[Rfam]
RNA sequence: CAACACACGGAGAGACCUGGCUUGGGUUGGGCUGUCGACUCUUGGUAUGUUGCGGCUUUGGUUGCCGAUUUUGGCCGGAUCUGCCUCGACGACGACCGGAUUCGGCUGCGGGCUUGGUGCUGUGGCAGGUUUUGACUCGUUGUGGGGGCCGGGUUUGAAGGUUGGGUCGACCGGCUGAAAACCAAUGCGUCGAACUGGGUGCUCCGGAUGAAGGGGCCUGCACGGGGACGGGCCGAGUCGCCGGGACCCAUCUCGAGUUGGAGUCAAAGCUUCGUGCUUGUCUGGUGCCUGGAGCUCGUCCCCUGCAGCUGUCCGGAUUCUGGGUUCCUUCAGGGAGGGCUUUGUGUUUGCGGUUCGACCGUUUGGAAAAGGACGGGCCCGUUGGUGGGUGGUCCUGGUUGUCCUCUCUCCAGAAAUGGCGGGAGGGCAACCCCUCUUUUUGGAGG
Dot-bracket structure: ....................................................................................................................................................................................................................................................((((((........))).))).((((.....)))).......................................................................................................................................................................
RNA: Ascomycota telomerase RNA, nucleotides 1379 to 1824